[Rfam]
RNA: mir-2060 microRNA precursor family
Organism: Branchiostoma lanceolatum
RNA sequence: GUAUGUUUGUGCAUGGAUGGUGUUCAGUACCAAGGACAAGUAUGGUUGUGCAUGGAUGGUGUUCAGUACCGAGGGCAGGUAUGUUUGUGU
Numbered sequence: 001g002u003a004u005g006u007u008u009g010u011g012c013a014u015g016g017a018u019g020g021u022g023u024u025c026a027g028u029a030c031c032a033a034g035g036a037c038a039a040g041u042a043u044g045g046u047u048g049u050g051c052a053u054g055g056a057u058g059g060u061g062u063u064c065a066g067u068a069c070c071g072a073g074g075g076c077a078g079g080u081a082u083g084u085u086u087g088u089g090u
Stems, first nucleotide, its partner, number of pairs: 004081007018071007026063007034051001036049004